[Rfam]
RNA: GEBRO RNA
RNA sequence: AAUCAAGUUUUUAUCAGAGAAGUUUUUUUGAGGGCUAGCAUGAAUAUUUUGUAUGAGAUGGCGCACUCCAUCCCUUGAGUACAAGGGAGACCCAAGCGCCCGCAGGUUGCCAACGGAUUAGAUGAGGCAUCAGGCGAAAGUAGGUGAAAGUGACAGCACGAGACCUUCAAAAAGAACCUCGCUAAAAGGUUCACGGCUAAGUCUAUAUAGAUAUGCCGAAACGUGCCGAGACGGGUCAAAUACACGAAAAGGACCUAGACAAAUUUUCGAAAGAAAUAGCUUGUAGGGCGUGUUGAACGCAAGUAAAAAGUCUAGUUGUAAGCUGAAAUACUUAUAAAGUAAUCUAAUCC
Numbered sequence: 001a002a003u004c005a006a007g008u009u010u011u012u013a014u015c016a017g018a019g020a021a022g023u024u025u026u027u028u029u030g031a032g033g034g035c036u037a038g039c040a041u042g043a044a045u046a047u048u049u050u051g052u053a054u055g056a057g058a059u060g061g062c063g064c065a066c067u068c069c070a071u072c073c074c075u076u077g078a079g080u081a082c083a084a085g086g087g088a089g090a091c092c093c094a095a096g097c098g099c100c101c102g103c104a105g106g107u108u109g110c111c112a113a114c115g116g117a118u119u120a121g122a123u124g125a126g127g128c129a130u131c132a133g134g135c136g137a138a139a140g141u142a143g144g145u146g147a148a149a150g151u152g153a154c155a156g157c158a159c160g161a162g163a164c165c166u167u168c169a170a171a172a173a174g175a176a177c178c179u180c181g182c183u184a185a186a187a188g189g190u191u192c193a194c195g196g197c198u199a200a201g202u203c204u205a206u207a208u209a210g211a212u213a214u215g216c217c218g219a220a221a222c223g224u225g226c227c228g229a230g231a232c233g234g235g236u237c238a239a240a241u242a243c244a245c246g247a248a249a250a251g252g253a254c255c256u257a258g259a260c261a262a263a264u265u266u267u268c269g270a271a272a273g274a275a276a277u278a279g280c281u282u283g284u285a286g287g288g289c290g291u292g293u294u295g296a297a298c299g300c301a302a303g304u305a306a307a308a309a310g311u312c313u314a315g316u317u318g319u320a321a322g323c324u325g326a327a328a329u330a331c332u333u334a335u336a337a338a339g340u341a342a343u344c345u346a347a348u349c350c
Base pairs, nucleotide, nucleotide: 008021009020010019011018012017060100061099062098063097064096071088072087073086074085106131108129109128110127111126115350116349117348118347119346120345121344122343123342156226157225158224159223174192175191176190177189178188179187194218195217196216197215201212202211203210204209255315256314257313258312259311260310265276266275267274279304280303281302282301283300284299316337317336318335319334320333321332322331